[Rfam]
RNA sequence: CCUGCCACUGUACCUGUCCUGAACCACGUGGCUGGUACGUUCCAGUGGUGAGCUGAGAGGAAGGCCCAGCCCAGGAAGCAGUCCUCCUCUUGCUCGUGGGGGGGCCUGUGCCGAAAGGCUGGGGACAAGU
Numbered sequence: 001c002c003u004g005c006c007a008c009u010g011u012a013c014c015u016g017u018c019c020u021g022a023a024c025c026a027c028g029u030g031g032c033u034g035g036u037a038c039g040u041u042c043c044a045g046u047g048g049u050g051a052g053c054u055g056a057g058a059g060g061a062a063g064g065c066c067c068a069g070c071c072c073a074g075g076a077a078g079c080a081g082u083c084c085u086c087c088u089c090u091u092g093c094u095c096g097u098g099g100g101g102g103g104g105c106c107u108g109u110g111c112c113g114a115a116a117g118g119c120u121g122g123g124g125a126c127a128a129g130u
Base pairs, nucleotide, nucleotide: 005048006047007046008045009044010043018035019034021032024031025030065123066122067121068120070117074112075111079108080107081106083104084103087100088099089098

The record is a 130-nucleotide RNA from Zapornia atra, which matches "Small nucleolar RNA SNORA65" in Rfam. On this family, see Huttenhofer et al., EMBO J 2001: "RNomics: an experimental approach that identifies 201 candidates for novel, small, non-messenger RNAs in mouse". The family has 14 seed sequences and 1,089 matches in Rfam 15.1. Clan: SNORA65 clan. NCBI's taxonomy places the organism under Eukaryota, Archosauria, Dinosauria, Theropoda, Zapornia. It is annotated as an H/ACA-box small nucleolar RNA. Rfam describes the family as follows. U65 belongs to the H/ACA class of snoRNAs which are thought to guide the sites of modification of uridines to pseudouridines.